[Rfam]
RNA sequence: GCUACGCGUGUUACCUCAGUACCUAGGCUGGGGUUUUUCGAAAGUCAGGUACCUGAAGUAGCGCGCGCAGC
Numbered sequence: 001g002c003u004a005c006g007c008g009u010g011u012u013a014c015c016u017c018a019g020u021a022c023c024u025a026g027g028c029u030g031g032g033g034u035u036u037u038u039c040g041a042a043a044g045u046c047a048g049g050u051a052c053c054u055g056a057a058g059u060a061g062c063g064c065g066c067g068c069a070g071c
Stems, first nucleotide, its partner, number of pairs: 001071003005067001007065007021050002024048001026046004
RNA: mir-275 microRNA precursor family